[Rfam]
RNA sequence: GGCUGAGGCCGUGACUGGCGCACAUCAAGGUGGGUCACCACCGGGGAGCGGCCGUGCCGACCUGCCGCGCGCCUGGGCGAAUCCG
Numbered sequence: 001g002g003c004u005g006a007g008g009c010c011g012u013g014a015c016u017g018g019c020g021c022a023c024a025u026c027a028a029g030g031u032g033g034g035u036c037a038c039c040a041c042c043g044g045g046g047a048g049c050g051g052c053c054g055u056g057c058c059g060a061c062c063u064g065c066c067g068c069g070c071g072c073c074u075g076g077g078c079g080a081a082u083c084c085g
Base pairs, nucleotide, nucleotide: 004056005055007053008052009051010050011049012048015045016044017073018072019071020070021069030041031040032039033038063079064078065077066076

A member of the RNA family "ZMP/ZTP riboswitch aptamer (pfl RNA motif)" from Nocardia sp. NRRL S-836, 85 nucleotides long. The source organism's lineage runs through Bacteria, Actinomycetota, Mycobacteriales, Nocardiaceae and Nocardia.